[Rfam]
RNA sequence: ACACCUGACUCCAGACUCUUCAGUCUGAGUUUGUGGAGAUGAGUGUAAAUCUGGCAUAGCAUACAGGUUA
Numbered sequence: 001a002c003a004c005c006u007g008a009c010u011c012c013a014g015a016c017u018c019u020u021c022a023g024u025c026u027g028a029g030u031u032u033g034u035g036g037a038g039a040u041g042a043g044u045g046u047a048a049a050u051c052u053g054g055c056a057u058a059g060c061a062u063a064c065a066g067g068u069u070a
Base pairs, nucleotide, nucleotide: 012033013032014031015030016029017028018027048069049068050067051066052065053064